The record is a 145-nucleotide RNA from Gossypium schwendimanii, which matches "MIR7502 microRNA precursor family" in Rfam. Lineage of the source: Eukaryota > Magnoliopsida > Pentapetalae > Malvaceae > Gossypium.
[Rfam]
RNA sequence: AGUUGAAAUUUUCAUUCAUUUUUACUAUUAAAAAUUUGGCGUGUCAACGGAAUAAUUAGAUAAUUUCAUAUGGCUUGCCAUGUGUACCUCAUAUCUUUGAAUAGGGACCAGUUUUUAACAGUAGAAAUAGAUGAAAUUUUUAACA
Number, nucleotide and partner (000 for none) at each position: 001a000002g144003u143004u142005g141006a140007a139008a138009u000010u136011u135012u134013c133014a132015u131016u130017c000018a128019u127020u126021u125022u124023u123024a122025c121026u120027a000028u118029u117030a116031a115032a114033a113034a000035u000036u000037u000038g000039g000040c000041g000042u000043g000044u000045c000046a000047a000048c000049g000050g000051a000052a000053u000054a000055a000056u000057u000058a000059g000060a000061u000062a000063a000064u000065u000066u000067c000068a000069u000070a000071u000072g000073g000074c000075u000076u000077g000078c000079c000080a000081u000082g000083u000084g000085u000086a000087c000088c000089u000090c000091a000092u000093a000094u000095c000096u000097u000098u000099g000100a000101a000102u000103a000104g000105g000106g000107a000108c000109c000110a000111g000112u000113u033114u032115u031116u030117a029118a028119c000120a026121g025122u024123a023124g022125a021126a020127a019128u018129a000130g016131a015132u014133g013134a012135a011136a010137u000138u008139u007140u006141u005142a004143a003144c002145a000